[Rfam]
RNA: bip internal ribosome entry site (IRES)
RNA sequence: CACCGGCCGAGACAGCACAGACGGACCGACCGAUUGGGGUGUUUCGCGAGUGUGAGAGGUAAGCGCCGCGGCCUGCAUUUCCAGACCUGCCCUCCUGGUUCGUGGCGCCUUGUGACCCCCGGCCCCUGCCGCCUGCAAGUCGGAAACCGCGCUGCGCUCCUGUGCUGCGGCCUGUGGCUGGACUGCCUGCGACGCCCUGCCUGCUGCUGCUGCCGGACUGGUUGGCAAGAUGAAGCUCUCCCUGGUGGCCGCGAUGCUGCUG
Dot-bracket structure: ...((((((.....((((((.............(.(((((......................(((((((((............................)))))))))......))))).)......................................))))))..(((((...))))).................................................................))))))...........
Numbered sequence: 001c002a003c004c005g006g007c008c009g010a011g012a013c014a015g016c017a018c019a020g021a022c023g024g025a026c027c028g029a030c031c032g033a034u035u036g037g038g039g040u041g042u043u044u045c046g047c048g049a050g051u052g053u054g055a056g057a058g059g060u061a062a063g064c065g066c067c068g069c070g071g072c073c074u075g076c077a078u079u080u081c082c083a084g085a086c087c088u089g090c091c092c093u094c095c096u097g098g099u100u101c102g103u104g105g106c107g108c109c110u111u112g113u114g115a116c117c118c119c120c121g122g123c124c125c126c127u128g129c130c131g132c133c134u135g136c137a138a139g140u141c142g143g144a145a146a147c148c149g150c151g152c153u154g155c156g157c158u159c160c161u162g163u164g165c166u167g168c169g170g171c172c173u174g175u176g177g178c179u180g181g182a183c184u185g186c187c188u189g190c191g192a193c194g195c196c197c198u199g200c201c202u203g204c205u206g207c208u209g210c211u212g213c214c215g216g217a218c219u220g221g222u223u224g225g226c227a228a229g230a231u232g233a234a235g236c237u238c239u240c241c242c243u244g245g246u247g248g249c250c251g252c253g254a255u256g257c258u259g260c261u262g
Stems, first nucleotide, its partner, number of pairs: 004251006015165006034121001036119005063108009168180005